Source information
Rfam assigns this 62-nucleotide RNA sequence from Erinaceus europaeus to the family "MAT2A 3'UTR stem loop B". Rfam classes the family as a cis-regulatory element. On this family, see Parker et al., Genome Res 2011: "New families of human regulatory RNA structures identified by comparative analysis of vertebrate genomes". The family's consensus secondary structure is taken from published work.
Nucleotides: 062
Base pairs, nucleotide, nucleotide: 001062002061003060004059006057008055009054012051016044017043018042019041020039021038022037023036024035
Number, partner (000 for none) and nucleotide at each position: 001062a002061u003060a004059g005000c006057c007000a008055c009054u010000u011000g012051g013000c014000a015000c016044c017043c018042u019041u020039g021038u022037g023036a024035u025000a026000a027000a028000c029000a030000g031000a032000c033000a034000a035024g036023u037022c038021a039020c040000a041019g042018g043017g044016g045000c046000a047000g048000u049000a050000c051012c052000u053000g054009a055008g056000g057006g058000u059004c060003u061002g062001u